[Rfam]
RNA sequence: ACACCGAAAGGAGGUGAUCCAGGGUUGAGUACUCCCAGGACGCGUGAGGUGGCUGCUUCCUAGCCGCCCCGCCCGGUUGCCGAGUAGGGCGGCGGGCAAAUCCACAGCAGACACCCGACCCGCGGGCCCACCGGGAUCGUCCCCCGGUGCCUGGUGGCAGGCGUGAGCGCCUACCUCCGGGAGCAGCCCGCGGGUUGUCUGCG
Numbered sequence: 001a002c003a004c005c006g007a008a009a010g011g012a013g014g015u016g017a018u019c020c021a022g023g024g025u026u027g028a029g030u031a032c033u034c035c036c037a038g039g040a041c042g043c044g045u046g047a048g049g050u051g052g053c054u055g056c057u058u059c060c061u062a063g064c065c066g067c068c069c070c071g072c073c074c075g076g077u078u079g080c081c082g083a084g085u086a087g088g089g090c091g092g093c094g095g096g097c098a099a100a101u102c103c104a105c106a107g108c109a110g111a112c113a114c115c116c117g118a119c120c121c122g123c124g125g126g127c128c129c130a131c132c133g134g135g136a137u138c139g140u141c142c143c144c145c146g147g148u149g150c151c152u153g154g155u156g157g158c159a160g161g162c163g164u165g166a167g168c169g170c171c172u173a174c175c176u177c178c179g180g181g182a183g184c185a186g187c188c189c190g191c192g193g194g195u196u197g198u199c200u201g202c203g
Stems, first nucleotide, its partner, number of pairs: 013057004018052001058098001060096002063093002066090004071085002116197012130148006
Actinobacteria sRNA Ms_IGR-5: a 203-nucleotide sequence from Peterkaempfera bronchialis. Taxonomically the source falls in Peterkaempfera (Bacteria, Bacillati, Actinomycetota, Kitasatosporales). It scores 70 bits against the family's covariance model. The family's RNA type in Rfam is small RNA. The pairing is the family consensus, mapped onto this sequence.